[Rfam]
RNA sequence: UGAAGAUACAGAACUUAGCUCAUUGGUGAGCAUUUAGCUAUCUGAAAUUGUUCACAGUGGCUAAGUUCAGUGUCUGAC
Dot-bracket structure: ..........((((((((((.....(((((((................)))))))...))))))))))..........
The record is a 78-nucleotide sequence from Gouania willdenowi, which matches "mir-27 microRNA precursor family" in Rfam. The organism belongs to Gouania, within Eukaryota. Pairs were carried over by alignment from the consensus structure, which was predicted with RNAalifold. Its family is annotated with miRNA-mediated post-transcriptional gene silencing and RISC complex in the Gene Ontology. On this family, see Chen et al., Genes Dev 2005: "The developmental miRNA profiles of zebrafish as determined by small RNA cloning".